RNA: bZIP non canonical Hac1/Xbp1 intron
Organism: Venturia effusa
RNA sequence: CUCUGAUUCCGACCCGACACAACAUUCUGCUGCAAUGUUGUGCGACCUGCAGUGUCGGUCGGCUUCCAGCAGUU
Numbered sequence: 001c002u003c004u005g006a007u008u009c010c011g012a013c014c015c016g017a018c019a020c021a022a023c024a025u026u027c028u029g030c031u032g033c034a035a036u037g038u039u040g041u042g043c044g045a046c047c048u049g050c051a052g053u054g055u056c057g058g059u060c061g062g063c064u065u066c067c068a069g070c071a072g073u074u
Stems, first nucleotide, its partner, number of pairs: 003072003007068001010061005021039006044056003